Shown here is a 63-nucleotide RNA sequence from Pectinatus brassicae, a member of the family "Fluoride riboswitch aptamer (crcB RNA motif)". Pairs were carried over by alignment from the consensus structure, which is taken from published work. It scores 41 bits against the family's covariance model.
RNA sequence: AUUAAAUUUGGUGAUGGAGUUCGCCAUUAAAUCUGUCUUGACAGUGAUGACUCCUGUUGUAAG
Number, nucleotide and partner (000 for none) at each position: 001a000002u000003u000004a000005a000006a000007u000008u000009u000010g025011g024012u023013g022014a000015u000016g054017g053018a052019g051020u050021u049022c013023g012024c011025c010026a000027u000028u000029a000030a000031a000032u000033c044034u043035g042036u041037c000038u000039u000040g000041a036042c035043a034044g033045u000046g000047a000048u000049g021050a020051c019052u018053c017054c016055u000056g000057u000058u000059g000060u000061a000062a000063g000